The record is a 39-nucleotide sequence from Aerobium aerolatum, which matches "THF-II riboswitch (folE RNA)" in Rfam.
The family's RNA type in Rfam is cis-regulatory element.
The literature on the family includes a 2023 paper in Nucleic Acids Res by Xu et al., "Structural insights into translation regulation by the THF-II riboswitch".
The source organism's lineage runs through Bacteria, Alphaproteobacteria, Phyllobacteriaceae, Aerobium and Aerobium aerolatum.
Its family is annotated with regulation of gene expression in the Gene Ontology.

RNA sequence: CCGUUCAACUCGCCCCUUCAUAGAAAGGGGCUACGGGAG
Numbered sequence: 001c002c003g004u005u006c007a008a009c010u011c012g013c014c015c016c017u018u019c020a021u022a023g024a025a026a027g028g029g030g031c032u033a034c035g036g037g038a039g
Stems, first nucleotide, its partner, number of pairs: 001036004012031007